The family of this 102-nucleotide RNA from Niallia nealsonii is "Purine riboswitch aptamer".
Its family is annotated with purine nucleobase biosynthetic process in the Gene Ontology.
Riboswitches are metabolite binding domains within certain messenger RNAs that serve as precision sensors for their corresponding targets.
Taxonomically the source falls in Niallia (Bacteria, Bacillota, Bacilli, Caryophanales).
It scores 91 bits against the family's covariance model.
[Rfam]
RNA sequence: CAAAAUUAUUUAUAAUAUUCUCGUAUAAUAGCAGGAAUAGGGCCUGCGAGUUUCUACCGGAUAACCGUAAAUUAUCUGACUACGAGUAAGCACCUAUAUAUA
Numbered sequence: 001c002a003a004a005a006u007u008a009u010u011u012a013u014a015a016u017a018u019u020c021u022c023g024u025a026u027a028a029u030a031g032c033a034g035g036a037a038u039a040g041g042g043c044c045u046g047c048g049a050g051u052u053u054c055u056a057c058c059g060g061a062u063a064a065c066c067g068u069a070a071a072u073u074a075u076c077u078g079a080c081u082a083c084g085a086g087u088a089a090g091c092a093c094c095u096a097u098a099u100a101u102a
Base pairs, nucleotide, nucleotide: 018088020086021085022084023083024082025081029049031047032046033045034044035043058078059077060076061075062074063073064072